[Rfam]
RNA sequence: UUCUUAUCCAGAGUGGCGGAGGGACUGGCCCUGUGAAGCCCGACAACCAGCAUUUUUCAUUUGAAUGUAUGGUGUUAAUUCCAGCAGGUAAAACCUGAAAGAUGAGAA
Numbered sequence: 001u002u003c004u005u006a007u008c009c010a011g012a013g014u015g016g017c018g019g020a021g022g023g024a025c026u027g028g029c030c031c032u033g034u035g036a037a038g039c040c041c042g043a044c045a046a047c048c049a050g051c052a053u054u055u056u057u058c059a060u061u062u063g064a065a066u067g068u069a070u071g072g073u074g075u076u077a078a079u080u081c082c083a084g085c086a087g088g089u090a091a092a093a094c095c096u097g098a099a100a101g102a103u104g105a106g107a108a
Stems, first nucleotide, its partner, number of pairs: 001108008013041001015040003021031003025084004042076004047072002050068006080100001085097005
A member of the RNA family "SAM riboswitch aptamer (S box leader)" from Clostridium carboxidivorans, 108 nucleotides long.
Its Rfam clan is "SAM clan".